[Rfam]
Background: This 119-nucleotide RNA from Streptomyces ipomoeae belongs to the Rfam family "Group II catalytic intron D1-D4-2". Rfam 15.1 lists 1,231 matches to the family in 625 species. Rfam's curators write: Group II introns are found in rRNA, tRNA and mRNA of organelles in fungi, plants and protists, and also in mRNA in bacteria. Pairs were carried over by alignment from the consensus structure. It scores 87 bits against the family's covariance model.
RNA sequence: GAAGGAAUGGCCUUUCGGAGCCGCCCUGCGGGGGGAGGCUUCAAACCCCCACAUGCUGCAGAAGCGGCAACGCGACUGCGGUGAGCGAUGUGGAAAAGGCGCCGCAUCCGGCGUCAGGU
Numbered sequence: 001g002a003a004g005g006a007a008u009g010g011c012c013u014u015u016c017g018g019a020g021c022c023g024c025c026c027u028g029c030g031g032g033g034g035g036a037g038g039c040u041u042c043a044a045a046c047c048c049c050c051a052c053a054u055g056c057u058g059c060a061g062a063a064g065c066g067g068c069a070a071c072g073c074g075a076c077u078g079c080g081g082u083g084a085g086c087g088a089u090g091u092g093g094a095a096a097a098g099g100c101g102c103c104g105c106a107u108c109c110g111g112c113g114u115c116a117g118g119u
Stems, first nucleotide, its partner, number of pairs: 001016005017042006024035004047118001049093006055082002058079003064073002098115006